mir-2229 microRNA precursor family: a 62-nucleotide sequence from Caenorhabditis remanei. The source organism's lineage runs through Eukaryota, Opisthokonta, Chromadorea, Rhabditomorpha and Caenorhabditis. Pairs were carried over by alignment from the consensus structure, which was predicted with RNAalifold.
RNA sequence: ACAGUUCCCACAGGGCUUUCCACACUCAUUGAGAAGCGUUGAAAGACUGAUGGGUCCUGGGA
Numbered sequence: 001a002c003a004g005u006u007c008c009c010a011c012a013g014g015g016c017u018u019u020c021c022a023c024a025c026u027c028a029u030u031g032a033g034a035a036g037c038g039u040u041g042a043a044a045g046a047c048u049g050a051u052g053g054g055u056c057c058u059g060g061g062a
Stems, first nucleotide, its partner, number of pairs: 002059003007054004011049003016045005022039002025036002
Dot-bracket structure: .(((..(((((((..(((((.((.((........)).)).))))).))).))))..)))...